[Rfam]
Rfam assigns this 64-nucleotide sequence from Lepisosteus oculatus to the family "Small nucleolar RNA SNORD42".

RNA sequence: GUGAAAGUGAUGGAAACUUUAUCGUGUCUGAACAAUGAUGCUUUCAAAGGAACCACUGAUUCAC
Numbered sequence: 001g002u003g004a005a006a007g008u009g010a011u012g013g014a015a016a017c018u019u020u021a022u023c024g025u026g027u028c029u030g031a032a033c034a035a036u037g038a039u040g041c042u043u044u045c046a047a048a049g050g051a052a053c054c055a056c057u058g059a060u061u062c063a064c
Stems, first nucleotide, its partner, number of pairs: 001064005
A search with the family's covariance model found it, with a score of 47 bits.
The base pairs follow the family's consensus structure, which was predicted with PFOLD.
From the family's description: snoRNA U42 is found in intron 3 of the ribosomal protein L23a (RPL23a) gene in humans and is also present in mice.